[Rfam]
RNA sequence: ACGCAUCUUUGACAGACCUGGAGCAGUUACUGUCUGCUGCUGAGGUCCCAGUACAGAUGCAAGAGAAAGAGUCCUCGCGCUUUCUGUCUGUCCAUUGUGGCAGCCAAGAUUGAAUGGGGGAAUACAGUG
Numbered sequence: 001a002c003g004c005a006u007c008u009u010u011g012a013c014a015g016a017c018c019u020g021g022a023g024c025a026g027u028u029a030c031u032g033u034c035u036g037c038u039g040c041u042g043a044g045g046u047c048c049c050a051g052u053a054c055a056g057a058u059g060c061a062a063g064a065g066a067a068a069g070a071g072u073c074c075u076c077g078c079g080c081u082u083u084c085u086g087u088c089u090g091u092c093c094a095u096u097g098u099g100g101c102a103g104c105c106a107a108g109a110u111u112g113a114a115u116g117g118g119g120g121a122a123u124a125c126a127g128u129g
Stems, first nucleotide, its partner, number of pairs: 003060006010050002015047004022038005072121005080112001083109003088103005
The family of this 129-nucleotide sequence from Rhinolophus ferrumequinum is "Small nucleolar RNA SNORA31". Rfam's curators write: ACA31 (SNORA31) belongs to the H/ACA class of snoRNAs which are thought to guide the sites of modification of uridines to pseudouridines. ACA31 is predicted to guide the pseudouridylation of U3713 in 28S rRNA and U218 in 18S rRNA. This family includes the mouse homologue snoMBI-161. By type it is an H/ACA-box small nucleolar RNA. It scores 58 bits against the family's covariance model. Gene Ontology terms of the family: nucleolus and RNA processing. The organism belongs to Rhinolophus, within Eukaryota.